Rfam assigns this 114-nucleotide RNA sequence from Ruminiclostridium sufflavum to the family "THF (Tetrahydrofolate) riboswitch aptamer". The source organism's lineage runs through Bacteria, Bacillati, Bacillota, Eubacteriales and Ruminiclostridium sufflavum. A search with the family's covariance model found it, with a score of 83 bits.
RNA sequence: GGCAGAGUAGAUUUUUGCGCGUUAAGUGCCGGAAGGACGGGAAGUUGCCUUUCGGACGAAAAGUAUAGACCUUCGUUGUUUAUAUUUGCGGUGCAGAUUUCGCAUUCCGCUGUC
Numbered sequence: 001g002g003c004a005g006a007g008u009a010g011a012u013u014u015u016u017g018c019g020c021g022u023u024a025a026g027u028g029c030c031g032g033a034a035g036g037a038c039g040g041g042a043a044g045u046u047g048c049c050u051u052u053c054g055g056a057c058g059a060a061a062a063g064u065a066u067a068g069a070c071c072u073u074c075g076u077u078g079u080u081u082a083u084a085u086u087u088g089c090g091g092u093g094c095a096g097a098u099u100u101c102g103c104a105u106u107c108c109g110c111u112g113u114c
Base pairs, nucleotide, nucleotide: 001114002113003112004111005110010101011100014097015096016095017094018093019092020090021089022088026057027056029055030054031053032052033051034050035049036048040107041106042105044103061087062086063085064084065083066082067081068080069079070078